Rfam assigns this 68-nucleotide sequence from Cedecea neteri to the family "Salmonella enterica sRNA STnc40". It scores 66 bits against the family's covariance model.

[Rfam]
RNA sequence: ACAGUGCCAUGGCCGUCUGAGCUAAGGUCUGACAACCCUGGAAAGGCGCAGCUUGCUGCGCCUUUUUU
Numbered sequence: 001a002c003a004g005u006g007c008c009a010u011g012g013c014c015g016u017c018u019g020a021g022c023u024a025a026g027g028u029c030u031g032a033c034a035a036c037c038c039u040g041g042a043a044a045g046g047c048g049c050a051g052c053u054u055g056c057u058g059c060g061c062c063u064u065u066u067u068u
Base pairs, nucleotide, nucleotide: 002019003018004017006013007012041066042065043064044063045062046061047060048059049058050057051056
Dot-bracket structure: .(((.((....))...))).....................(((((((((((....)))))))))))..